[Rfam]
RNA: T-box leader
Organism: Peptacetobacter hiranonis
RNA sequence: UUAAAGGCUAUGAUGAAGACAGUAGAUUCAGGAUUUUAUUUUUACAGAGAACUGGGUUAGCUGAGAACCAGCAAAAUAUACUGAAUUGAAUAUCACUUCGGAGCUGAAGGCUGAAAGAUUUAUCCUAUUUGGAUUUAUCAAAUAAGUUAUUCCGGUAAUGUGCCGUUAUACAGUAGAGUGUCGUAUAGAUAAAUUUAAAAAAAUAUCUAUGCGGAAUUAGGGUGGUAACGCGAGCAACUCGUCCCUUUG
Numbered sequence: 001u002u003a004a005a006g007g008c009u010a011u012g013a014u015g016a017a018g019a020c021a022g023u024a025g026a027u028u029c030a031g032g033a034u035u036u037u038a039u040u041u042u043u044a045c046a047g048a049g050a051a052c053u054g055g056g057u058u059a060g061c062u063g064a065g066a067a068c069c070a071g072c073a074a075a076a077u078a079u080a081c082u083g084a085a086u087u088g089a090a091u092a093u094c095a096c097u098u099c100g101g102a103g104c105u106g107a108a109g110g111c112u113g114a115a116a117g118a119u120u121u122a123u124c125c126u127a128u129u130u131g132g133a134u135u136u137a138u139c140a141a142a143u144a145a146g147u148u149a150u151u152c153c154g155g156u157a158a159u160g161u162g163c164c165g166u167u168a169u170a171c172a173g174u175a176g177a178g179u180g181u182c183g184u185a186u187a188g189a190u191a192a193a194u195u196u197a198a199a200a201a202a203a204u205a206u207c208u209a210u211g212c213g214g215a216a217u218u219a220g221g222g223u224g225g226u227a228a229c230g231c232g233a234g235c236a237a238c239u240c241g242u243c244c245c246u247u248u249g
Base pairs, nucleotide, nucleotide: 007104008103015099016098017097018096025087026086027085028084029083030082040075041074042073052071053070054069055068107151108150109148110147111146112145153165154164155163181214182213183212184211185210186209187208188207189206190205191204219246220245221244222243230242231241232240233239234238